[Rfam]
RNA sequence: CGACGCGGUGGCCCACGACGUCAACUACUCAAAGAACCAGGGGAAACAACCCCACCCGACCCGACCCGGCGUCCACCUGACGCACCCCAGGGGCUCGUCACCCGCAUGAGUGAGUUUUGUCGACUCGGCUGGCUUUUGGGCUGGUUGCCAGGCAUAUGCUCACGCCACACCACCAGACAUGCGUCGGCCCCCGGCCGGGACUCCCAAUCCCGAUCGAGGGCCUGACCACCGAGGAAGAAAAAGGCUUCCCG
Numbered sequence: 001c002g003a004c005g006c007g008g009u010g011g012c013c014c015a016c017g018a019c020g021u022c023a024a025c026u027a028c029u030c031a032a033a034g035a036a037c038c039a040g041g042g043g044a045a046a047c048a049a050c051c052c053c054a055c056c057c058g059a060c061c062c063g064a065c066c067c068g069g070c071g072u073c074c075a076c077c078u079g080a081c082g083c084a085c086c087c088c089a090g091g092g093g094c095u096c097g098u099c100a101c102c103c104g105c106a107u108g109a110g111u112g113a114g115u116u117u118u119g120u121c122g123a124c125u126c127g128g129c130u131g132g133c134u135u136u137u138g139g140g141c142u143g144g145u146u147g148c149c150a151g152g153c154a155u156a157u158g159c160u161c162a163c164g165c166c167a168c169a170c171c172a173c174c175a176g177a178c179a180u181g182c183g184u185c186g187g188c189c190c191c192c193g194g195c196c197g198g199g200a201c202u203c204c205c206a207a208u209c210c211c212g213a214u215c216g217a218g219g220g221c222c223u224g225a226c227c228a229c230c231g232a233g234g235a236a237g238a239a240a241a242a243g244g245c246u247u248c249c250c251g
Stems, first nucleotide, its partner, number of pairs: 007230004017086001020083001098113004103108001128163001130162003186222005192216002197211004233249005
Source information:
A member of the RNA family "Streptomyces sRNA 4677" from Streptomyces sp. ADI96-02, 251 nucleotides long. By type it is a small RNA. On this family, see Hindra et al., PLoS One 2014: "Complex intra-operonic dynamics mediated by a small RNA in Streptomyces coelicolor". Rfam 15.1 lists 563 matches to the family in 285 species. NCBI's taxonomy places the organism under Bacteria, Bacillati, Actinomycetota, Actinomycetes, Streptomyces. The pairing is the family consensus, mapped onto this sequence.